[Rfam]
RNA sequence: AUACUUACCUGGUAAGGGAGAUACCGUGAUCAAGAAAGGUGGUUCACCCAAGGCGAGGCUUAGCCAUUGCACGCCAGCUAUGCUGACCCCUGUGAAUUUCCCGAAUGUGGAAAUCUCGAUUGCAUAAUUUAUGGUAGUGGGGGACUGCGUCCGCGCUCUCCCCUG
Numbered sequence: 001a002u003a004c005u006u007a008c009c010u011g012g013u014a015a016g017g018g019a020g021a022u023a024c025c026g027u028g029a030u031c032a033a034g035a036a037a038g039g040u041g042g043u044u045c046a047c048c049c050a051a052g053g054c055g056a057g058g059c060u061u062a063g064c065c066a067u068u069g070c071a072c073g074c075c076a077g078c079u080a081u082g083c084u085g086a087c088c089c090c091u092g093u094g095a096a097u098u099u100c101c102c103g104a105a106u107g108u109g110g111a112a113a114u115c116u117c118g119a120u121u122g123c124a125u126a127a128u129u130u131a132u133g134g135u136a137g138u139g140g141g142g143g144a145c146u147g148c149g150u151c152c153g154c155g156c157u158c159u160c161c162c163c164u165g
Stems, first nucleotide, its partner, number of pairs: 012123004016049003020045002023043005050091001052089002055087001057084003061080004093118003096114001097112002100110002139164006147156003

This 165-nucleotide RNA sequence from Salvelinus namaycush belongs to the Rfam family "U1 spliceosomal RNA". Lineage of the source: Eukaryota > Bilateria > Euteleostomi > Actinopteri > Salvelinus. The family's consensus secondary structure is taken from published work. A reference for the family is Oubridge et al. (1994), "Crystal structure at 1.92 A resolution of the RNA-binding domain of the U1A spliceosomal protein complexed with an RNA hairpin", Nature. From the family's description: U1 is a small nuclear RNA (snRNA) component of the spliceosome (involved in pre-mRNA splicing). The match comes from Rfam's covariance-model search (136 bits). It is annotated as a spliceosomal small nuclear RNA.